A member of the RNA family "Flavobacterium-1 RNA", 122 nucleotides long. The sequence is in the family's curated seed alignment.

RNA sequence: CCAGGCUAGGGGUACAAGUCCUGCAGAAUUGCGUUCCACUGGACCUAAGCAACGACCUGAAAGGGUAGCGACGACGCCUGGCGUUGAAGGGGAGAGUAUCAGACGUGAUGUCCCCGACAACG
Numbered sequence: 001c002c003a004g005g006c007u008a009g010g011g012g013u014a015c016a017a018g019u020c021c022u023g024c025a026g027a028a029u030u031g032c033g034u035u036c037c038a039c040u041g042g043a044c045c046u047a048a049g050c051a052a053c054g055a056c057c058u059g060a061a062a063g064g065g066u067a068g069c070g071a072c073g074a075c076g077c078c079u080g081g082c083g084u085u086g087a088a089g090g091g092g093a094g095a096g097u098a099u100c101a102g103a104c105g106u107g108a109u110g111u112c113c114c115c116g117a118c119a120a121c122g
Base pairs, nucleotide, nucleotide: 001081002080003079004078005077006076007074009072010046011045012044013043015041016040022033023032024031025030049069050068057065058064083121084120085119086118089115090114091113092112093111099108100107101106